Small nucleolar RNA SNORA3/SNORA45 family: a 132-nucleotide RNA from Crocodylus porosus. From the family's description: The members of this family belong to the H/ACA class of snoRNAs which are thought to guide the sites of modification of uridines to pseudouridines. Clan: SNORA3 clan. Taxonomically the source falls in Crocodylus (Eukaryota, Eumetazoa, Deuterostomia, Amniota). Rfam 15.1 lists 2,080 matches to the family in 639 species. The base pairs follow the family's consensus structure, which was predicted with RNAalifold.
[Rfam]
RNA sequence: GUCGAGACUAGAGUCACAUCCUGACAUCUCUCAUUGUCUUGUUGUGCUAUAGUUCUCGGAGAAAAACUACUGGUCUUUAUUCACUGACUGUUGCAUUUCAUGCCUCAGUUGGUCACCAGAUCAGUUACAUGC
Numbered sequence: 001g002u003c004g005a006g007a008c009u010a011g012a013g014u015c016a017c018a019u020c021c022u023g024a025c026a027u028c029u030c031u032c033a034u035u036g037u038c039u040u041g042u043u044g045u046g047c048u049a050u051a052g053u054u055c056u057c058g059g060a061g062a063a064a065a066a067c068u069a070c071u072g073g074u075c076u077u078u079a080u081u082c083a084c085u086g087a088c089u090g091u092u093g094c095a096u097u098u099c100a101u102g103c104c105u106c107a108g109u110u111g112g113u114c115a116c117c118a119g120a121u122c123a124g125u126u127a128c129a130u131g132c
Stems, first nucleotide, its partner, number of pairs: 002059005007053003012048002015046004020041001023038004070124007083113005089107002093103002